Annotation: Shown here is a 118-nucleotide RNA sequence from Mesorhabditis belari, a member of the family "U5 spliceosomal RNA". The family's RNA type in Rfam is spliceosomal small nuclear RNA. The match comes from Rfam's covariance-model search (80 bits). For this family Rfam cites "The spliceosomal snRNAs of Caenorhabditis elegans" (Thomas et al., Nucleic Acids Res, 1990). Pairs were carried over by alignment from the consensus structure, which is taken from published work. The organism belongs to Mesorhabditis, within Eukaryota.

[Rfam]
RNA sequence: UAUCUCUGGUUCGUCUGCAUUUGACCGAGAAAAUCUUUCGCCUUUACUAAAGAUUUCCGUGCAGACGAACAAUUAUGAGUAUAAGUCAAUUUUUGGAAGUCCUUGCAAAAGCGGGACA
Number, nucleotide and partner (000 for none) at each position: 001u000002a000003u000004c079005u078006c077007u000008g000009g070010u069011u068012c067013g066014u065015c064016u063017g062018c061019a060020u000021u000022u000023g000024a000025c000026c000027g000028a000029g000030a000031a056032a055033a054034u053035c052036u051037u050038u049039c000040g000041c000042c000043u000044u000045u000046a000047c000048u000049a038050a037051a036052g035053a034054u033055u032056u031057c000058c000059g000060u019061g018062c017063a016064g015065a014066c013067g012068a011069a010070c009071a000072a000073u000074u000075a000076u000077g006078a005079g004080u000081a000082u000083a000084a000085g000086u000087c000088a000089a000090u000091u000092u000093u000094u000095g000096g000097a000098a000099g117100u116101c115102c114103u113104u000105g000106c000107a000108a000109a000110a000111g000112c000113g103114g102115g101116a100117c099118a000